Ribosomal protein L20 leader: a 124-nucleotide RNA from Streptococcus sp. DD12.
The match comes from Rfam's covariance-model search (77 bits).
The family's consensus secondary structure was predicted with CMfinder.
This family is a putative r-protein leader autoregulatory structure found in B. subtilis and other low-GC Gram-positive bacteria. It is located in the 5' untranslated regions of mRNAs encoding initiation factor 3 followed by ribosomal proteins L35 and L20 (infC-rpmI-rplT).
[Rfam]
RNA sequence: UGAGAAAAGCAGAAGUGAGAGCUUCUCGCCUUGCGACUAACGUUGUCUGGCCCUACAUGUAAAACAUCUUGUGAUGAUUACUCGUAGUGCGGACUGUUAAAGCAGUCCGCUUUGUUUUUCUCUA
Numbered sequence: 001u002g003a004g005a006a007a008a009g010c011a012g013a014a015g016u017g018a019g020a021g022c023u024u025c026u027c028g029c030c031u032u033g034c035g036a037c038u039a040a041c042g043u044u045g046u047c048u049g050g051c052c053c054u055a056c057a058u059g060u061a062a063a064a065c066a067u068c069u070u071g072u073g074a075u076g077a078u079u080a081c082u083c084g085u086a087g088u089g090c091g092g093a094c095u096g097u098u099a100a101a102g103c104a105g106u107c108c109g110c111u112u113u114g115u116u117u118u119u120c121u122c123u124a
Stems, first nucleotide, its partner, number of pairs: 011026006028051003033046005089110009